[Rfam]
RNA sequence: GGAAAGUUAGUUAAAUAGUCUCGUAUAUCGUCGGGAAUAUGGCCCGAAAGUAUCUACCCGAAAACCUUAAAUUUUUGGACUACGAGUAAGUGUUCAUGAAGA
Numbered sequence: 001g002g003a004a005a006g007u008u009a010g011u012u013a014a015a016u017a018g019u020c021u022c023g024u025a026u027a028u029c030g031u032c033g034g035g036a037a038u039a040u041g042g043c044c045c046g047a048a049a050g051u052a053u054c055u056a057c058c059c060g061a062a063a064a065c066c067u068u069a070a071a072u073u074u075u076u077g078g079a080c081u082a083c084g085a086g087u088a089a090g091u092g093u094u095c096a097u098g099a100a101g102a
Base pairs, nucleotide, nucleotide: 020086021085022084023083024082025081031047032046033045034044035043058078059077060076061075062074063073064072
This 102-nucleotide sequence from Paenibacillus validus belongs to the Rfam family "Purine riboswitch aptamer". Gene Ontology term of the family: purine nucleobase biosynthetic process. The family is grouped with related families in Rfam's "Purine riboswitches". The source organism's lineage runs through Bacteria, Bacillati, Caryophanales, Paenibacillaceae and Paenibacillus.